[Rfam]
RNA: lysM-TM7 RNA
RNA sequence: GCUACCUUGAAAAGUCGUACAAUUGCCAAAACAAUCUUUUUGUUGCUAUUAGUUAAUUAAAACGGUCGAUGGCAAUUUUUCUCUGAAGUUCAGAGAGAAAGACUUUGAUAGAUAUUGGGAAUGCAUGCGAACGUGUUCCGGGAG
Numbered sequence: 001g002c003u004a005c006c007u008u009g010a011a012a013a014g015u016c017g018u019a020c021a022a023u024u025g026c027c028a029a030a031a032c033a034a035u036c037u038u039u040u041u042g043u044u045g046c047u048a049u050u051a052g053u054u055a056a057u058u059a060a061a062a063c064g065g066u067c068g069a070u071g072g073c074a075a076u077u078u079u080u081c082u083c084u085g086a087a088g089u090u091c092a093g094a095g096a097g098a099a100a101g102a103c104u105u106u107g108a109u110a111g112a113u114a115u116u117g118g119g120a121a122u123g124c125a126u127g128c129g130a131a132c133g134u135g136u137u138c139c140g141g142g143a144g
Stems, first nucleotide, its partner, number of pairs: 003114002006111002013104004021077008080096006118139003122135003126131001